[Rfam]
RNA: Makes More Granules Regulator RNA (mmgR)
Organism: bacterium YEK0313
RNA sequence: UCGCACAGCCCUCCUUGGGCGUUUCCUCCCUAGACUUGGGCCGCUCACGAAAGUGAGCGGCCUCUUUCUUUUCUGGG
Numbered sequence: 001u002c003g004c005a006c007a008g009c010c011c012u013c014c015u016u017g018g019g020c021g022u023u024u025c026c027u028c029c030c031u032a033g034a035c036u037u038g039g040g041c042c043g044c045u046c047a048c049g050a051a052a053g054u055g056a057g058c059g060g061c062c063u064c065u066u067u068c069u070u071u072u073c074u075g076g077g
Stems, first nucleotide, its partner, number of pairs: 008020004039062009